This 371-nucleotide part of an RNA from Actinobaculum sp. 352 belongs to the Rfam family "Bacterial large subunit ribosomal RNA".
Rfam links the family to the GO terms structural constituent of ribosome and ribosome.
Taxonomically the source falls in Actinobaculum (Bacteria, Bacillati, Actinomycetota, Actinomycetaceae).
RNA sequence: CGAGUGAAUCGUGGUUAAGGAACUCGGCAAAAUGCCCCCGUAACUUCGGGAGAAGGGGGGCCCGUGUCUUGACAUCCCCGUGCGGGGUGGAGGGGUGUGGGUCGCAGAGAAGAGGGAGAAGCGACUGUUUAUCAAAAACACAGGUCCGUGCGAAGCCGUAAGGCGAUGUAUACGGACUGACGCCUGCCCGGUGCUGGAAGGUUAAGCGGACUGGUUAGCUCCUCUGUGUGGGGGGUGACGCUAGGAAGUUAAGCCCCAGUAAACGGCGGUGGUAACUAUAACCAUCCUAAGGUAGCGAAAUUCCUUGUCGGGUAAGUUCCGACCUGCACGAAUGGCGUAACGACUUCUCCGCUGUCUCGACCACGAGCUCG
Dot-bracket structure: ((((....((((((((.(((..............(((((....(....).....)))))((((((..........((((....)))).........))))))(...).......(((((((((..(((.........)))..(((((((((...(((....)))...)..))))))))..((((.(((..(((((((..(((...((...(((((..(((((((.....)))))))...)))))...))...))))))))..)))))((((((.......))))))(...).....(.........((((((.....))))))).........))))...)).)))))))....))).)))))))).))))